[Rfam]
Shown here is a 132-nucleotide sequence from Mesocricetus auratus, a member of the family "Small nucleolar RNA SNORA72".
U72 is a member of the H/ACA class of snoRNAs. The snoRNA gene is located in intron 4 of the ribosomal L30 protein gene in human, mouse and chicken.
A search with the family's covariance model found it, with a score of 151 bits.
Pairs were carried over by alignment from the consensus structure, which was predicted with PFOLD.
It is annotated as an H/ACA-box small nucleolar RNA.

RNA sequence: CUGCGAAUAUUCUCACUGUUCUGAUUCAUUGAUAAUCAGGACAGGCUAGACAUUCGCUAUAAUAAAACCAUGCAUGUGUCCCCAGGUCUAGUUCUUUACCUAGGUCUGGUUUUCAAAAUGCUGGUGACAAGC
Numbered sequence: 001c002u003g004c005g006a007a008u009a010u011u012c013u014c015a016c017u018g019u020u021c022u023g024a025u026u027c028a029u030u031g032a033u034a035a036u037c038a039g040g041a042c043a044g045g046c047u048a049g050a051c052a053u054u055c056g057c058u059a060u061a062a063u064a065a066a067a068c069c070a071u072g073c074a075u076g077u078g079u080c081c082c083c084a085g086g087u088c089u090a091g092u093u094c095u096u097u098a099c100c101u102a103g104g105u106c107u108g109g110u111u112u113u114c115a116a117a118a119u120g121c122u123g124g125u126g127a128c129a130a131g132c
Stems, first nucleotide, its partner, number of pairs: 003057003016044011067125004072121002082109010
Dot-bracket structure: ..(((..........(((((((((((.......)))))))))))..........))).........((((.((........((((((((((........))))))))))..........)))))).......